[Rfam]
RNA sequence: GCCUGGUCCAAGGGAAGUGUUGUUUACAACUAAUUGAUCACAACCAGUUACAGAUUUCUGUUUCUUCUGCAUCCCCACUGCUUCACUUGACUAGUCUUAA
Numbered sequence: 001g002c003c004u005g006g007u008c009c010a011a012g013g014g015a016a017g018u019g020u021u022g023u024u025u026a027c028a029a030c031u032a033a034u035u036g037a038u039c040a041c042a043a044c045c046a047g048u049u050a051c052a053g054a055u056u057u058c059u060g061u062u063u064c065u066u067c068u069g070c071a072u073c074c075c076c077a078c079u080g081c082u083u084c085a086c087u088u089g090a091c092u093a094g095u096c097u098u099a100a
Base pairs, nucleotide, nucleotide: 001096003094004093005092006091007090008089010088011087014084015083016079017078018077019076022074032062033061034060036058037057